The family of this 75-nucleotide RNA sequence from Carassius auratus is "mir-196 microRNA precursor family". Taxonomically the source falls in Carassius (Eukaryota, Euteleostomi, Osteoglossocephalai, Cyprinidae). The family's consensus secondary structure was predicted with PFOLD.
RNA sequence: UAAGUGAUUUAGGUAGUUUCAUGUUGUUGUGCUCUAUUUUACAUCCCCACGACACGAAACUGUCUUAAUUGCCUC
Number, nucleotide and partner (000 for none) at each position: 001u000002a000003a000004g072005u071006g070007a069008u068009u067010u000011a065012g064013g063014u062015a061016g060017u059018u058019u057020c000021a000022u054023g053024u052025u051026g050027u049028u000029g047030u000031g045032c000033u000034c000035u000036a000037u000038u000039u000040u000041a000042c000043a000044u000045c031046c000047c029048c000049a027050c026051g025052a024053c023054a022055c000056g000057a019058a018059a017060c016061u015062g014063u013064c012065u011066u000067a009068a008069u007070u006071g005072c004073c000074u000075c000